[Rfam]
RNA sequence: CAGCGUUCUCAGGGCGGGGUGAAAGUCCCCACCGGCGGUAAUGGCGGUUGUCGCGCGUCUCGCGCUAGCCCGCAUUAGCCCGCGAGCGCCCGGCCUGCCCACAGGCCGGGGUCAGCAGAUUCGGUGCGAUUCCGAAGCCGACGGUCAUAGUCCGGAUGGAAGAGAGCGCGA
Numbered sequence: 001c002a003g004c005g006u007u008c009u010c011a012g013g014g015c016g017g018g019g020u021g022a023a024a025g026u027c028c029c030c031a032c033c034g035g036c037g038g039u040a041a042u043g044g045c046g047g048u049u050g051u052c053g054c055g056c057g058u059c060u061c062g063c064g065c066u067a068g069c070c071c072g073c074a075u076u077a078g079c080c081c082g083c084g085a086g087c088g089c090c091c092g093g094c095c096u097g098c099c100c101a102c103a104g105g106c107c108g109g110g111g112u113c114a115g116c117a118g119a120u121u122c123g124g125u126g127c128g129a130u131u132c133c134g135a136a137g138c139c140g141a142c143g144g145u146c147a148u149a150g151u152c153c154g155g156a157u158g159g160a161a162g163a164g165a166g167c168g169c170g171a
Stems, first nucleotide, its partner, number of pairs: 003169008017029003031151002033140002035083004086116002120136005142154003